[Rfam]
The family of this 74-nucleotide sequence from Myotis lucifugus is "mir-9223 microRNA precursor family". Gene Ontology terms of the family: miRNA-mediated post-transcriptional gene silencing and RISC complex. NCBI's taxonomy places the organism under Eukaryota, Opisthokonta, Mammalia, Yangochiroptera, Myotis. A search with the family's covariance model found it, with a score of 66 bits. The family's consensus secondary structure was predicted with RNAalifold.

RNA sequence: GGUGGUUCUUUGGUGACGUACCCGGAAUCAGGCUCCCUCCCCUCGGGUUCUGGGUGUAUCACCCAAAAACCACA
Numbered sequence: 001g002g003u004g005g006u007u008c009u010u011u012g013g014u015g016a017c018g019u020a021c022c023c024g025g026a027a028u029c030a031g032g033c034u035c036c037c038u039c040c041c042c043u044c045g046g047g048u049u050c051u052g053g054g055u056g057u058a059u060c061a062c063c064c065a066a067a068a069a070c071c072a073c074a
Stems, first nucleotide, its partner, number of pairs: 002073002005070003009066002012063005019056011031044002